Shown here is a 52-nucleotide RNA from Aureimonas endophytica, a member of the family "sul1 RNA". Taxonomically the source falls in Aureimonas (Bacteria, Alphaproteobacteria, Hyphomicrobiales, Aurantimonadaceae). By type it is a riboswitch. Pairs were carried over by alignment from the consensus structure, which is taken from published work.
[Rfam]
RNA sequence: CAAGGACCGGCCCCGCCGGUGGCUAUGCCGGGCGCCUAUCCCUCGGCCACUC
Numbered sequence: 001c002a003a004g005g006a007c008c009g010g011c012c013c014c015g016c017c018g019g020u021g022g023c024u025a026u027g028c029c030g031g032g033c034g035c036c037u038a039u040c041c042c043u044c045g046g047c048c049a050c051u052c
Stems, first nucleotide, its partner, number of pairs: 006020006027047006